RNA: tRNA
RNA sequence: ACGAUUGUGAUGGAACUGGUAGACAUGAUUGAUUUAGGUUCAGUUGGUUUUUUAAUCGUGCAGGUUCAAGUCCUGCCAAUCGUA
Numbered sequence: 001a002c003g004a005u006u007g008u009g010a011u012g013g014a015a016c017u018g019g020u021a022g023a024c025a026u027g028a029u030u031g032a033u034u035u036a037g038g039u040u041c042a043g044u045u046g047g048u049u050u051u052u053u054a055a056u057c058g059u060g061c062a063g064g065u066u067c068a069a070g071u072c073c074u075g076c077c078a079a080u081c082g083u084a
Stems, first nucleotide, its partner, number of pairs: 001083007010026003028044005060076005